[Rfam]
RNA: Flavivirus DB element
Organism: Orthoflavivirus denguei
RNA sequence: GGAGGCUGCAAACCGUGGAAGCUGUACGCACGGUGUAGCAGACUAGCGGUUAGAGGAGACCCCUCCCAUGAC
Numbered sequence: 001g002g003a004g005g006c007u008g009c010a011a012a013c014c015g016u017g018g019a020a021g022c023u024g025u026a027c028g029c030a031c032g033g034u035g036u037a038g039c040a041g042a043c044u045a046g047c048g049g050u051u052a053g054a055g056g057a058g059a060c061c062c063c064u065c066c067c068a069u070g071a072c
Stems, first nucleotide, its partner, number of pairs: 001066005006041002012034006048061004